[Rfam]
Small nucleolar RNA SNORA1: a 133-nucleotide RNA from Octodon degus. Gene Ontology terms of the family: RNA processing and nucleolus.

Nucleotides: 133
Stems, first nucleotide, its partner, number of pairs: 002060003006056003021043007073126005087112002090109003
Number, partner (000 for none) and nucleotide at each position: 001000a002060g003059c004058c005000u006056c007055a008054u009000u010000c011000u012000g013000g014000a015000u016000u017000a018000g019000a020000a021043u022042g023041g024040a025039c026038a027037c028000u029000g030000u031000c032000a033000a034000u035000u036000g037027g038026u039025g040024u041023c042022c043021a044000g045000a046000a047000c048000u049000g050000g051000u052000c053000a054008a055007u056006g057000u058004g059003g060002c061000u062000a063000a064000a065000a066000u067000u068000g069000a070000g071000a072000c073126a074125c075124a076123g077122g078000a079000c080000a081000u082000g083000u084000u085000u086000u087112c088111a089000u090109c091108a092107c093000a094000g095000u096000g097000a098000a099000c100000g101000u102000u103000u104000a105000c106000a107092g108091u109090g110000c111088u112087g113000a114000c115000a116000a117000u118000g119000a120000g121000u122077c123076c124075u125074g126073u127000a128000a129000c130000a131000u132000u133000c
Pairs were carried over by alignment from the consensus structure, which was predicted with PFOLD. The source organism's lineage runs through Eukaryota, Metazoa, Euteleostomi, Amniota and Octodon.